RNA sequence: GGGGUGCGAUGUCUGGCUACCUCCACGUGGUGCACUCCGGGCAACGUGGCAUCUUUGAGCCGCCACGGCUAAAGCCAGA
Numbered sequence: 001g002g003g004g005u006g007c008g009a010u011g012u013c014u015g016g017c018u019a020c021c022u023c024c025a026c027g028u029g030g031u032g033c034a035c036u037c038c039g040g041g042c043a044a045c046g047u048g049g050c051a052u053c054u055u056u057g058a059g060c061c062g063c064c065a066c067g068g069c070u071a072a073a074g075c076c077a078g079a
Stems, first nucleotide, its partner, number of pairs: 001038007019031003045067005
The record is a 79-nucleotide RNA from Diatraea saccharalis, which matches "HDV ribozyme from F. prausnitzii" in Rfam. The family has 48 seed sequences and 3,803 matches in Rfam 15.1. The match comes from Rfam's covariance-model search (44 bits). The base pairs follow the family's consensus structure, which is taken from published work.